[Rfam]
DUF805b RNA: a 36-nucleotide RNA sequence from Limnovirga soli. Pairs were carried over by alignment from the consensus structure, which is taken from published work. The match comes from Rfam's covariance-model search (41 bits). The family's RNA type in Rfam is cis-regulatory element.
RNA sequence: ACCGGCGAAGCCGAAAACCGGAAUACAGAGUAGGCA
Dot-bracket structure: .((((....[[[.....))))...........]]].